Rfam assigns this 79-nucleotide sequence from Lanius ludovicianus to the family "Small nucleolar RNA SNORD72". snoRNA HBII-240 belongs to the CD family of snoRNAs. It is the human orthologue of the mouse MBII-240 and is predicted to guide 2'O-ribose methylation of the large 28S rRNA at residue U4590. The match comes from Rfam's covariance-model search (55 bits). It is annotated as a C/D-box small nucleolar RNA. Rfam 15.1 lists 726 matches to the family in 499 species.
RNA sequence: AGUCUGUUAAUUGUUUCUUAAGAAAAAUCUCUGAACAUAUGAACUCCAUAGUGAUUUCAGUGUAUUACUGAGAGAAGCU
Numbered sequence: 001a002g003u004c005u006g007u008u009a010a011u012u013g014u015u016u017c018u019u020a021a022g023a024a025a026a027a028u029c030u031c032u033g034a035a036c037a038u039a040u041g042a043a044c045u046c047c048a049u050a051g052u053g054a055u056u057u058c059a060g061u062g063u064a065u066u067a068c069u070g071a072g073a074g075a076a077g078c079u
Stems, first nucleotide, its partner, number of pairs: 002078002005075001007073002